This 81-nucleotide RNA from Pipistrellus kuhlii belongs to the Rfam family "mir-574 microRNA precursor family".
A search with the family's covariance model found it, with a score of 84 bits.
Its family is annotated with miRNA-mediated post-transcriptional gene silencing and RISC complex in the Gene Ontology.
[Rfam]
RNA sequence: AGGCCUGAAGAGAGAAGCAGGGUCUGAUCCAUAGCCUUUGUGGCAGCUAUUGAUCAGCACUUGCCUCUCUCUUUUGCCUGG
Numbered sequence: 001a002g003g004c005c006u007g008a009a010g011a012g013a014g015a016a017g018c019a020g021g022g023u024c025u026g027a028u029c030c031a032u033a034g035c036c037u038u039u040g041u042g043g044c045a046g047c048u049a050u051u052g053a054u055c056a057g058c059a060c061u062u063g064c065c066u067c068u069c070u071c072u073u074u075u076g077c078c079u080g081g
Stems, first nucleotide, its partner, number of pairs: 008073008017064004024057006032049004